Shown here is a 117-nucleotide RNA sequence from Comamonas aquatica, a member of the family "ALIL pseudoknot". Pairs were carried over by alignment from the consensus structure, which is taken from published work.
RNA sequence: CGCUUUUUUUGCACAGGCGGAGCUGGACCGUCGCAUCAAGAGCUAAUUGACUUUGUAGACCAGUAUCGCGAUGCCUAUGGGGUCGAGCCAAUUUGUAGGCUGCUGCAAAUUGCCCCA
Numbered sequence: 001c002g003c004u005u006u007u008u009u010u011g012c013a014c015a016g017g018c019g020g021a022g023c024u025g026g027a028c029c030g031u032c033g034c035a036u037c038a039a040g041a042g043c044u045a046a047u048u049g050a051c052u053u054u055g056u057a058g059a060c061c062a063g064u065a066u067c068g069c070g071a072u073g074c075c076u077a078u079g080g081g082g083u084c085g086a087g088c089c090a091a092u093u094u095g096u097a098g099g100c101u102g103c104u105g106c107a108a109a110u111u112g113c114c115c116c117a
Stems, first nucleotide, its partner, number of pairs: 016032005078117005089112002092109007